[Rfam]
RNA: Histidine operon leader
Organism: Celerinatantimonas diazotrophica
RNA sequence: CCAUCAUCACCAUCCCGAAUAAGUCUUUCAGGAAAAUUGGUGCUGGAAGACUCAUAGAGGCUUCCAGCGGUUGACAGAAAUUUUUAAACCCUUGGAAGUCCAUCUUCCAAGGGUUUUUU
Numbered sequence: 001c002c003a004u005c006a007u008c009a010c011c012a013u014c015c016c017g018a019a020u021a022a023g024u025c026u027u028u029c030a031g032g033a034a035a036a037u038u039g040g041u042g043c044u045g046g047a048a049g050a051c052u053c054a055u056a057g058a059g060g061c062u063u064c065c066a067g068c069g070g071u072u073g074a075c076a077g078a079a080a081u082u083u084u085u086a087a088a089c090c091c092u093u094g095g096a097a098g099u100c101c102a103u104c105u106u107c108c109a110a111g112g113g114u115u116u117u118u119u
Base pairs, nucleotide, nucleotide: 008042009041010040014032015031017029018028043067044066045065046064047063048062049061086116087115088114089113090112091111092110093109094108095107096106097105098104
Dot-bracket structure: .......(((...((.((.........)).)).......)))(((((((...........)))))))..................(((((((((((((.....)))))))))))))...